[Rfam]
Shown here is a 165-nucleotide part of an RNA from Megachile rotundata, a member of the family "Eukaryotic small subunit ribosomal RNA". Clan: SSU clan. Pairs were carried over by alignment from the consensus structure, which is taken from published work. The sequence is in the family's curated seed alignment.
RNA sequence: GCCCGUCGCUACUGCCGAUUGAAUGAUUUAGUGAGGUCUUCGGACUGGUGCGCGGCAAUGUCUCGGCAUUGCCUAUGUUACCGGAAAAAUAUCCAAACUUGAUUAUUUAGAGGAAGUAAAAGUUGUAACAAUGUUUCCGUAGGUGAACCUGCGGAAGGAUCAUUA
Numbered sequence: 001g002c003c004c005g006u007c008g009c010u011a012c013u014g015c016c017g018a019u020u021g022a023a024u025g026a027u028u029u030a031g032u033g034a035g036g037u038c039u040u041c042g043g044a045c046u047g048g049u050g051c052g053c054g055g056c057a058a059u060g061u062c063u064c065g066g067c068a069u070u071g072c073c074u075a076u077g078u079u080a081c082c083g084g085a086a087a088a089a090u091a092u093c094c095a096a097a098c099u100u101g102a103u104u105a106u107u108u109a110g111a112g113g114a115a116g117u118a119a120a121a122g123u124u125g126u127a128a129c130a131a132u133g134u135u136u137c138c139g140u141a142g143g144u145g146a147a148c149c150u151g152c153g154g155a156a157g158g159a160u161c162a163u164u165a
Base pairs, nucleotide, nucleotide: 001129004125005124007122010118011117012116013115015113016112019109021108022107023106024105025104026103027102028101030099031098032097035094036093040089045084046083047082048081049080050078051077052076054074055073056071057070058069059068134157135156136155137154138153139152140151141150142149143148